[Rfam]
The family of this 167-nucleotide sequence from Faecalibacillus faecis is "M-box riboswitch aptamer (ykoK leader)".
The literature on the family includes a 2007 paper in Cell by Dann CE 3rd et al., "Structure and mechanism of a metal-sensing regulatory RNA".
Taxonomically the source falls in Faecalibacillus (Bacteria, Bacillati, Bacillota, Coprobacillaceae).
Rfam links the family to the GO terms response to magnesium ion and regulation of gene expression.
RNA sequence: AAUAGAUAUCGGUAGGUGAGGUUACCGCAGGGAUUGGGAAAUCCUAAGAUUACUGCCGCAAAAUUGUGGAGACACAAUGCGCUGGUUAGCAGAUGAAGUCGCGAAGGCUUUGUUUAAUGUAAUUGAUAUGCCCUGUGAUACUAAAGCUUGAACGGAUGGAAGAAGUU
Numbered sequence: 001a002a003u004a005g006a007u008a009u010c011g012g013u014a015g016g017u018g019a020g021g022u023u024a025c026c027g028c029a030g031g032g033a034u035u036g037g038g039a040a041a042u043c044c045u046a047a048g049a050u051u052a053c054u055g056c057c058g059c060a061a062a063a064u065u066g067u068g069g070a071g072a073c074a075c076a077a078u079g080c081g082c083u084g085g086u087u088a089g090c091a092g093a094u095g096a097a098g099u100c101g102c103g104a105a106g107g108c109u110u111u112g113u114u115u116a117a118u119g120u121a122a123u124u125g126a127u128a129u130g131c132c133c134u135g136u137g138a139u140a141c142u143a144a145a146g147c148u149u150g151a152a153c154g155g156a157u158g159g160a161a162g163a164a165g166u167u
Stems, first nucleotide, its partner, number of pairs: 007161001009159002011153001013105001015148003020142003026137007049123005056084001058082002065076004092114004098108003